Source information: Shown here is a 30-nucleotide sequence from Frankia alni, a member of the family "CRISPR RNA direct repeat element". The family has 5 seed sequences and 447 matches in Rfam 15.1. Taxonomically the source falls in Frankia alni (Bacteria, Actinomycetota, Actinomycetes, Frankiales).
RNA sequence: GUUGCGAUCCCUCCAGGGAUGAUCAGCGAC
Numbered sequence: 001g002u003u004g005c006g007a008u009c010c011c012u013c014c015a016g017g018g019a020u021g022a023u024c025a026g027c028g029a030c
Stems, first nucleotide, its partner, number of pairs: 001030005007020005

Rfam links the family to the GO term defense response. The base pairs follow the family's consensus structure, which was predicted with WAR.